Notes: The family of this 76-nucleotide RNA sequence from Alligator sinensis is "Mammalian CPEB3 ribozyme". Pairs were carried over by alignment from the consensus structure, which is taken from published work.
RNA sequence: GCUGAAGGUUUGAGGCCAUAGCAGAAGCACUCACAGCACGGCCAUGUCAGAGUUUAACGAAUCUGCAAAUUCUGCU
Numbered sequence: 001g002c003u004g005a006a007g008g009u010u011u012g013a014g015g016c017c018a019u020a021g022c023a024g025a026a027g028c029a030c031u032c033a034c035a036g037c038a039c040g041g042c043c044a045u046g047u048c049a050g051a052g053u054u055u056a057a058c059g060a061a062u063c064u065g066c067a068a069a070u071u072c073u074g075c076u
Stems, first nucleotide, its partner, number of pairs: 014043004020076007027039001048065004053060002